A member of the RNA family "L31-Actinobacteria ribosomal protein leader" from Actinoplanes sp. SE50/110, 47 nucleotides long.

[Rfam]
RNA sequence: AGGGUUCCGGUUCCCGCUCUCACUCAUCACAGAGCGACCCGGCGGCC
Numbered sequence: 001a002g003g004g005u006u007c008c009g010g011u012u013c014c015c016g017c018u019c020u021c022a023c024u025c026a027u028c029a030c031a032g033a034g035c036g037a038c039c040c041g042g043c044g045g046c047c
Base pairs, nucleotide, nucleotide: 003047004046005045007042008041009040010039015036016035017034018033019032020031